Shown here is a 372-nucleotide RNA from Aquabacterium soli, a member of the family "transfer-messenger RNA". About the family: Bacterial tmRNA, also known as 10Sa RNA or SsrA, is named for its dual tRNA and mRNA-like properties. Gene Ontology term of the family: RNA catabolic process. By type it is a non-coding RNA gene. The family is grouped with related families in Rfam's "tRNA clan".

RNA sequence: GGGGCCGACUUGGUUUCGACGUGGGUGCGGAUGCGGGAUAGUGCAUGUCGAGCACCAGUGAGCUCGUAAAUCCAUCUGGAAACAAACUAACUGCCAACGACGAAUCGUUCGCACUCGCCGCUUAACACCGGUGAGCCUCGCAACAGUCGGCCUAUGGGCUGGGCUUGAGUCGCAAGACAAGGGCUGCGAGGUUAUUCACAUAGGCUGGGCUUGAGCGGGGUCACUCCGUUGAAGCCGAGAUCAAGUGACUGGUGGGCUCCGUAGCGUGCUGCUGCGCGACGGUGACCACGAGAUCCAAAUCAGUCAGCUAAACAUGUAGAUCUACCUGUUGAUGGCUUGCGGACGGGGGUUCAAUUCCCCCCGGCUCCACCA
Numbered sequence: 001g002g003g004g005c006c007g008a009c010u011u012g013g014u015u016u017c018g019a020c021g022u023g024g025g026u027g028c029g030g031a032u033g034c035g036g037g038a039u040a041g042u043g044c045a046u047g048u049c050g051a052g053c054a055c056c057a058g059u060g061a062g063c064u065c066g067u068a069a070a071u072c073c074a075u076c077u078g079g080a081a082a083c084a085a086a087c088u089a090a091c092u093g094c095c096a097a098c099g100a101c102g103a104a105u106c107g108u109u110c111g112c113a114c115u116c117g118c119c120g121c122u123u124a125a126c127a128c129c130g131g132u133g134a135g136c137c138u139c140g141c142a143a144c145a146g147u148c149g150g151c152c153u154a155u156g157g158g159c160u161g162g163g164c165u166u167g168a169g170u171c172g173c174a175a176g177a178c179a180a181g182g183g184c185u186g187c188g189a190g191g192u193u194a195u196u197c198a199c200a201u202a203g204g205c206u207g208g209g210c211u212u213g214a215g216c217g218g219g220g221u222c223a224c225u226c227c228g229u230u231g232a233a234g235c236c237g238a239g240a241u242c243a244a245g246u247g248a249c250u251g252g253u254g255g256g257c258u259c260c261g262u263a264g265c266g267u268g269c270u271g272c273u274g275c276g277c278g279a280c281g282g283u284g285a286c287c288a289c290g291a292g293a294u295c296c297a298a299a300u301c302a303g304u305c306a307g308c309u310a311a312a313c314a315u316g317u318a319g320a321u322c323u324a325c326c327u328g329u330u331g332a333u334g335g336c337u338u339g340c341g342g343a344c345g346g347g348g349g350u351u352c353a354a355u356u357c358c359c360c361c362c363g364g365c366u367c368c369a370c371c372a
Base pairs, nucleotide, nucleotide: 001368002367003366004365005364006363007362020341021340022339023338024337025336026335033329034328035327036326037325040323041322044316045315046314047313048312049066050065051064052063053062055079056078057077058076114135115134116133117132118131119130120129136191137190138189139188140187141186144161145160146159147158150205151204152203153202154201155200156199208236209235210234211233212232214230215229216228219250220249221248222247223246224245252289253288254287255286257284259282260281261280264277265276266275268308269307270306271305274300345361346360347359348358349357